The record is a 119-nucleotide RNA from Neptunicella marina, which matches "Gammaprotebacteria rimP leader" in Rfam.
RNA sequence: AAUUAAGAUUGGUGGACAAGGGUCCAGUAUCAAAAAAGCCCCGCUUAGCUCGGGGCUUUUUGUUAUUCGUUUUUGCGAUACUUGUAUUGUUAAUUGUCCGGGCUUAAUGCCCUUUUUUU
Numbered sequence: 001a002a003u004u005a006a007g008a009u010u011g012g013u014g015g016a017c018a019a020g021g022g023u024c025c026a027g028u029a030u031c032a033a034a035a036a037a038g039c040c041c042c043g044c045u046u047a048g049c050u051c052g053g054g055g056c057u058u059u060u061u062g063u064u065a066u067u068c069g070u071u072u073u074u075g076c077g078a079u080a081c082u083u084g085u086a087u088u089g090u091u092a093a094u095u096g097u098c099c100g101g102g103c104u105u106a107a108u109g110c111c112c113u114u115u116u117u118u119u
Stems, first nucleotide, its partner, number of pairs: 035059009100112004
About this RNA
NCBI's taxonomy places the organism under Bacteria, Pseudomonadati, Pseudomonadota, Alteromonadaceae, Neptunicella. By type it is a cis-regulatory leader. Rfam links the family to the GO term regulation of gene expression.